[Rfam]
RNA sequence: GGAUUACUCCUUUACGCUUUCGCGUUUGGUUGAUAAAGAUUCGCACCUCUAUCAAACCGGGUAAUCCCACCUCUUGGCAAGACCUGCUGUCAGAUCAAAUCUGAACUACUACAAUUCACGAUUAGUUUUCCGGAGCUGAUCAGCCUUUAAAAAUGCGGGGAAUUCUGGAUUUUUUCCGGAUUCCCUGCACUGAUG
Numbered sequence: 001g002g003a004u005u006a007c008u009c010c011u012u013u014a015c016g017c018u019u020u021c022g023c024g025u026u027u028g029g030u031u032g033a034u035a036a037a038g039a040u041u042c043g044c045a046c047c048u049c050u051a052u053c054a055a056a057c058c059g060g061g062u063a064a065u066c067c068c069a070c071c072u073c074u075u076g077g078c079a080a081g082a083c084c085u086g087c088u089g090u091c092a093g094a095u096c097a098a099a100u101c102u103g104a105a106c107u108a109c110u111a112c113a114a115u116u117c118a119c120g121a122u123u124a125g126u127u128u129u130c131c132g133g134a135g136c137u138g139a140u141c142a143g144c145c146u147u148u149a150a151a152a153a154u155g156c157g158g159g160g161a162a163u164u165c166u167g168g169a170u171u172u173u174u175u176c177c178g179g180a181u182u183c184c185c186u187g188c189a190c191u192g193a194u195g
Stems, first nucleotide, its partner, number of pairs: 001067007009060002014025004028058004032053004037048002070192001075138003081131001089106002091103005108126004113122001157186003162182001164180003167176002

Rfam assigns this 195-nucleotide RNA sequence from Nitrosomonas europaea to the family "Proteobacterial sRNA psRNA2". On this family, see Gvakharia et al., FEMS Microbiol Lett 2010: "Computational prediction and transcriptional analysis of sRNAs in Nitrosomonas europaea". Pairs were carried over by alignment from the consensus structure. The organism belongs to Nitrosomonas europaea, within Bacteria.